Plastid-rps12 3UTR RNA: an 84-nucleotide RNA sequence. Plastid rpl20 is a non-coding RNA (ncRNA) recognised in plastids. It was found in the three prime untranslated region (3UTR) of rps12 gene, its 3UTR location sugest a role in transcript maduration. The family's consensus secondary structure was predicted with LocARNA. On this family, see Richter et al., Plant Commun 2023: "Retrograde signaling in plants: A critical review focusing on the GUN pathway and beyond". It is one of the family's seed sequences.

[Rfam]
RNA sequence: GGUUUCCCUUGGUGUAAAUUCAAUUACCUCAAUUUAAGAAUUCUCCAUUGGUAGCAAAUGCUUAUCCAUUAAGCGGAGGAAAUC
Dot-bracket structure: ........((((.......))))...................((((((.(((((.......))))).)).....))))......